Glycine riboswitch aptamer: a 105-nucleotide RNA from Oceanirhabdus seepicola. Its family is annotated with glycine biosynthetic process in the Gene Ontology. The source organism's lineage runs through Bacteria, Bacillati, Bacillota, Clostridiaceae and Oceanirhabdus. The match comes from Rfam's covariance-model search (55 bits).
RNA sequence: AUGAUAUAUGUGGGAGAUAACUAAAGAUUUUAGUAGCCGAAGGAACAAAUGUAAGUUUUGCCGAACGUACAUGAAAAUCUCAGGCAAAGGAACCACGUAUGGACA
Numbered sequence: 001a002u003g004a005u006a007u008a009u010g011u012g013g014g015a016g017a018u019a020a021c022u023a024a025a026g027a028u029u030u031u032a033g034u035a036g037c038c039g040a041a042g043g044a045a046c047a048a049a050u051g052u053a054a055g056u057u058u059u060g061c062c063g064a065a066c067g068u069a070c071a072u073g074a075a076a077a078u079c080u081c082a083g084g085c086a087a088a089g090g091a092a093c094c095a096c097g098u099a100u101g102g103a104c105a
Base pairs, nucleotide, nucleotide: 006100007099008098009097010096011095012094013093020034021033022032023031036085037084038083039081040080043079044078049072050071051070052069053068
Dot-bracket structure: .....((((((((......((((.......)))).(((((..((....(((((..............))))).....)))).))).......)))))))).....